[Rfam]
RNA sequence: UUUUGAGAUAGAGGCGCGAUGUUUAAGAGUAUCAUUAUGGAGGUAAGCACUGAGAAGUAAUGAGAAAGGAACCAUCGCCGAAGUAUGUAACCUACGCUUUAAGGGUUAUAUCGCUGGUCUUGCAUAAAAUAUAUGUAAGAUUGUCACAAUUUUUUGUGGAGAGCUAUCCAAUGG
Numbered sequence: 001u002u003u004u005g006a007g008a009u010a011g012a013g014g015c016g017c018g019a020u021g022u023u024u025a026a027g028a029g030u031a032u033c034a035u036u037a038u039g040g041a042g043g044u045a046a047g048c049a050c051u052g053a054g055a056a057g058u059a060a061u062g063a064g065a066a067a068g069g070a071a072c073c074a075u076c077g078c079c080g081a082a083g084u085a086u087g088u089a090a091c092c093u094a095c096g097c098u099u100u101a102a103g104g105g106u107u108a109u110a111u112c113g114c115u116g117g118u119c120u121u122g123c124a125u126a127a128a129a130u131a132u133a134u135g136u137a138a139g140a141u142u143g144u145c146a147c148a149a150u151u152u153u154u155u156g157u158g159g160a161g162a163g164c165u166a167u168c169c170a171a172u173g174g
Stems, first nucleotide, its partner, number of pairs: 007168005016078006023071002032063007082115003090107001092105002116142011144159006

Lysine riboswitch aptamer: a 174-nucleotide RNA sequence from Clostridium intestinale. On this family, see Rodionov et al., Nucleic Acids Res 2003: "Regulation of lysine biosynthesis and transport genes in bacteria: yet another RNA riboswitch?".